RNA sequence: ACUAUGGAGAGUUUGAUCCUGGCUCAGGAUGAACGCUGGCGGUAUGCCUAACACAUGCAAGUCGAACGGGCUCUUCGGAGCUAGUGGCGGACGGGUGAGGAACGCGUGAGAACCUGCCUCAAGGUCGGGGACAACAGUUGGAAACGACUGCUAAUACCGGAUGAGCCGAAUAGGUAAAAGAUUUAUCGCCUAGAGAGGGGCUCGCGUCUGAUUAGCUAGAUGGUGAGGUAAAGGCUUACCAUGGCGACGAUCAGUAGCUGGUCUGAGAGGAUGAGCAGCCACACUGGGACUGAGACACGGCCCAGACUCCUACGGGAGGCAGCAGUGGGGAAUUUUCCGCAAUGGGCGAAAGCCUGACGGAGCAAUACCGCGUGAGGGAGGAAGGCUCUUGGGUUGUAAACCUCAAAACUUAGGGAAGAAAAAAAUGACGGUACCUAAUGUAAGCAUCGGCUAACUCCGUGCCAGCAGCCGCGGUAAUACGGAGGAUGCAAGCGUUAUCCGGAAUCAUUG
Numbered sequence: 001a002c003u004a005u006g007g008a009g010a011g012u013u014u015g016a017u018c019c020u021g022g023c024u025c026a027g028g029a030u031g032a033a034c035g036c037u038g039g040c041g042g043u044a045u046g047c048c049u050a051a052c053a054c055a056u057g058c059a060a061g062u063c064g065a066a067c068g069g070g071c072u073c074u075u076c077g078g079a080g081c082u083a084g085u086g087g088c089g090g091a092c093g094g095g096u097g098a099g100g101a102a103c104g105c106g107u108g109a110g111a112a113c114c115u116g117c118c119u120c121a122a123g124g125u126c127g128g129g130g131a132c133a134a135c136a137g138u139u140g141g142a143a144a145c146g147a148c149u150g151c152u153a154a155u156a157c158c159g160g161a162u163g164a165g166c167c168g169a170a171u172a173g174g175u176a177a178a179a180g181a182u183u184u185a186u187c188g189c190c191u192a193g194a195g196a197g198g199g200g201c202u203c204g205c206g207u208c209u210g211a212u213u214a215g216c217u218a219g220a221u222g223g224u225g226a227g228g229u230a231a232a233g234g235c236u237u238a239c240c241a242u243g244g245c246g247a248c249g250a251u252c253a254g255u256a257g258c259u260g261g262u263c264u265g266a267g268a269g270g271a272u273g274a275g276c277a278g279c280c281a282c283a284c285u286g287g288g289a290c291u292g293a294g295a296c297a298c299g300g301c302c303c304a305g306a307c308u309c310c311u312a313c314g315g316g317a318g319g320c321a322g323c324a325g326u327g328g329g330g331a332a333u334u335u336u337c338c339g340c341a342a343u344g345g346g347c348g349a350a351a352g353c354c355u356g357a358c359g360g361a362g363c364a365a366u367a368c369c370g371c372g373u374g375a376g377g378g379a380g381g382a383a384g385g386c387u388c389u390u391g392g393g394u395u396g397u398a399a400a401c402c403u404c405a406a407a408a409c410u411u412a413g414g415g416a417a418g419a420a421a422a423a424a425a426u427g428a429c430g431g432u433a434c435c436u437a438a439u440g441u442a443a444g445c446a447u448c449g450g451c452u453a454a455c456u457c458c459g460u461g462c463c464a465g466c467a468g469c470c471g472c473g474g475u476a477a478u479a480c481g482g483a484g485g486a487u488g489c490a491a492g493c494g495u496u497a498u499c500c501g502g503a504a505u506c507a508u509u510g
Stems, first nucleotide, its partner, number of pairs: 009025005027500004032496006039371006045364002047329001052327003056324003061088003066085002069082005095282003104207007113199002118195003122191003126160001128158002135150006166174002180187002208254003215245003220242008257279004261272004284305005307318004335361001337360003343356005374404004384395004408441001410438005418429001444489005455484005465472002